[Rfam]
RNA sequence: CAACCGUUGCAACACUCUGGCCCUUACUGUUCCAUCUAUUGGAUCAUAUCAUCACGUGGUAUAGGCUUAUUUUACGCAACGAAAAUAAAUUAUUCCGGACCCAUUACUCACCGCGGUAUCCUUGGAGCUUGCUCCGUGGGUACAGUGGUCCAUAUUUCGGGCCAACAU
Numbered sequence: 001c002a003a004c005c006g007u008u009g010c011a012a013c014a015c016u017c018u019g020g021c022c023c024u025u026a027c028u029g030u031u032c033c034a035u036c037u038a039u040u041g042g043a044u045c046a047u048a049u050c051a052u053c054a055c056g057u058g059g060u061a062u063a064g065g066c067u068u069a070u071u072u073u074a075c076g077c078a079a080c081g082a083a084a085a086u087a088a089a090u091u092a093u094u095c096c097g098g099a100c101c102c103a104u105u106a107c108u109c110a111c112c113g114c115g116g117u118a119u120c121c122u123u124g125g126a127g128c129u130u131g132c133u134c135c136g137u138g139g140g141u142a143c144a145g146u147g148g149u150c151c152a153u154a155u156u157u158c159g160g161g162c163c164a165a166c167a168u
Stems, first nucleotide, its partner, number of pairs: 007082003018069002020066003025061003029045001031043004098163001100161002111148004116143003120140003

Rfam assigns this 168-nucleotide sequence from Aspergillus wentii to the family "Small nucleolar RNA snR80". The family has 6 seed sequences and 447 matches in Rfam 15.1. The family is grouped with related families in Rfam's "SNORA28 clan". A search with the family's covariance model found it, with a score of 41 bits. The family's consensus secondary structure was predicted with WAR. Taxonomically the source falls in Aspergillus wentii (Eukaryota, Opisthokonta, Eurotiomycetidae, Eurotiales).